[Rfam]
A member of the RNA family "skipping-rope RNA", 83 nucleotides long.
Rfam classes the family as a small RNA.
RNA sequence: GAUAUUUGAAGUAGAGAUUGUGCUGCUACACACCUAUUAAUAGGUCAAAAGAAAUGCAGGAAAGGGCACACCUGCCAAAUAUC
Number, nucleotide and partner (000 for none) at each position: 001g083002a082003u081004a080005u079006u078007u077008g076009a000010a000011g029012u028013a027014g026015a000016g000017a000018u000019u000020g069021u068022g067023c066024u065025g000026c014027u013028a012029c011030a000031c051032a045033c044034c043035u042036a000037u000038u000039a000040a000041u000042a035043g034044g033045u032046c000047a000048a000049a000050a000051g031052a000053a000054a000055u000056g075057c074058a073059g072060g071061a000062a000063a000064g000065g024066g023067c022068a021069c020070a000071c060072c059073u058074g057075c056076c008077a007078a006079a005080u004081a003082u002083c001